A member of the RNA family "mir-451 microRNA precursor family" from Leptobrachium leishanense, 71 nucleotides long.
Rfam links the family to the GO terms RISC complex and miRNA-mediated post-transcriptional gene silencing.
The match comes from Rfam's covariance-model search (79 bits).

RNA sequence: UGUGGAGUGUCGGUGAAACCGUUACCAUUACUGAGUUUAGUAAUGGUAAGGGUUAUACUGCUGCUCUGCCU
Numbered sequence: 001u002g003u004g005g006a007g008u009g010u011c012g013g014u015g016a017a018a019c020c021g022u023u024a025c026c027a028u029u030a031c032u033g034a035g036u037u038u039a040g041u042a043a044u045g046g047u048a049a050g051g052g053u054u055a056u057a058c059u060g061c062u063g064c065u066c067u068g069c070c071u
Stems, first nucleotide, its partner, number of pairs: 007064003011060003017054004022049012
The literature on the family includes a 2008 paper in Biochem Pharmacol by Zhu et al., "Role of MicroRNA miR-27a and miR-451 in the regulation of MDR1/P-glycoprotein expression in human cancer cells".